[Rfam]
RNA sequence: UGGCGCCCGAACAGGGACCUGGACACGGGGGAAAAAGUGAGGAAGAAGGCACUAAAGUCGGCCGAAAAUGAAAGUGGAAGAAAAACUCCUCCAGACGUCGUGGGAACCUGCCGUGUUGGAACCAGAGGUAAGUAAUAGUGUCUGAUUAUGGGACAAGAAUUAAGCCAGCAUCAGAUUUAUGUAGGGCAAUUAAAAGAGGCUUUAAAAACAUGAGGAGUAAAGGUUAAAAGUAAUGAUUUGUUUAAAUUUUUUGAUUUUGUAAAAGAUACCUGCCCUU
Numbered sequence: 001u002g003g004c005g006c007c008c009g010a011a012c013a014g015g016g017a018c019c020u021g022g023a024c025a026c027g028g029g030g031g032a033a034a035a036a037g038u039g040a041g042g043a044a045g046a047a048g049g050c051a052c053u054a055a056a057g058u059c060g061g062c063c064g065a066a067a068a069u070g071a072a073a074g075u076g077g078a079a080g081a082a083a084a085a086c087u088c089c090u091c092c093a094g095a096c097g098u099c100g101u102g103g104g105a106a107c108c109u110g111c112c113g114u115g116u117u118g119g120a121a122c123c124a125g126a127g128g129u130a131a132g133u134a135a136u137a138g139u140g141u142c143u144g145a146u147u148a149u150g151g152g153a154c155a156a157g158a159a160u161u162a163a164g165c166c167a168g169c170a171u172c173a174g175a176u177u178u179a180u181g182u183a184g185g186g187c188a189a190u191u192a193a194a195a196g197a198g199g200c201u202u203u204a205a206a207a208a209c210a211u212g213a214g215g216a217g218u219a220a221a222g223g224u225u226a227a228a229a230g231u232a233a234u235g236a237u238u239u240g241u242u243u244a245a246a247u248u249u250u251u252u253g254a255u256u257u258u259g260u261a262a263a264a265g266a267u268a269c270c271u272g273c274c275c276u277u
Stems, first nucleotide, its partner, number of pairs: 006031003015024001038046001088128001089125002096118001099115005136156001138154002141152004161204003164200003211253008221239006262277002265274001267272001

A member of the RNA family "Mason-Pfizer monkey virus packaging signal" from Piliocolobus tephrosceles, 277 nucleotides long.
Lineage of the source: Eukaryota > Gnathostomata > Sarcopterygii > Dipnotetrapodomorpha > Piliocolobus.
Pairs were carried over by alignment from the consensus structure, which was predicted with PFOLD.
By type it is a cis-regulatory element.